[Rfam]
RNA sequence: GGACAGUGACGAUUUUGAUUCAAAGGUCUCGUUCGUCGUAAUUGGCCUUUUGGGCCUUGCCGACCUUCCUUAUUAUUCCGAGUCC
Numbered sequence: 001g002g003a004c005a006g007u008g009a010c011g012a013u014u015u016u017g018a019u020u021c022a023a024a025g026g027u028c029u030c031g032u033u034c035g036u037c038g039u040a041a042u043u044g045g046c047c048u049u050u051u052g053g054g055c056c057u058u059g060c061c062g063a064c065c066u067u068c069c070u071u072a073u074u075a076u077u078c079c080g081a082g083u084c085c
Base pairs, nucleotide, nucleotide: 001085002084003083004082045057046053
Small nucleolar RNA Z43: an 85-nucleotide RNA sequence from Glycine max. Gene Ontology terms of the family: nucleolus and RNA processing.